[Rfam]
RNA sequence: UCAAAAGGAACGCAGACUAUGAACGCCCUGUCCUGUGCCAGCGUCUGCAUGACCAGCUUCUUCUGG
Numbered sequence: 001u002c003a004a005a006a007g008g009a010a011c012g013c014a015g016a017c018u019a020u021g022a023a024c025g026c027c028c029u030g031u032c033c034u035g036u037g038c039c040a041g042c043g044u045c046u047g048c049a050u051g052a053c054c055a056g057c058u059u060c061u062u063c064u065g066g
Base pairs, nucleotide, nucleotide: 012048013047014046015045016044017043025039027037029035053066054065055064056063